[Rfam]
Nucleotides: 095
Base pairs, nucleotide, nucleotide: 005087006086007085008084009083016030017029018028019027032074033073034072035070036069039068040067041066046061047060
Number, partner (000 for none) and nucleotide at each position: 001000c002000a003000a004000a005087c006086g007085c008084u009083g010000g011000a012000a013000a014000g015000u016030g017029g018028a019027u020000g021000c022000c023000a024000g025000a026000c027019a028018u029017c030016c031000c032074a033073c034072c035070g036069a037000c038000g039068g040067a041066g042000c043000a044000a045000c046061g047060g048000c049000g050000c051000g052000a053000a054000u055000a056000g057000c058000g059000c060047c061046u062000a063000a064000a065000u066041c067040u068039c069036u070035c071000a072034g073033g074032u075000c076000a077000a078000a079000a080000g081000g082000a083009c084008a085007g086006c087005g088000g089000g090000g091000g092000c093000g094000c095000a
This 95-nucleotide RNA sequence from Asticcacaulis benevestitus belongs to the Rfam family "Glycine riboswitch aptamer". A search with the family's covariance model found it, with a score of 46 bits. Gene Ontology term of the family: glycine biosynthetic process. Pairs were carried over by alignment from the consensus structure. Lineage of the source: Bacteria > Pseudomonadati > Alphaproteobacteria > Asticcacaulis > Asticcacaulis benevestitus.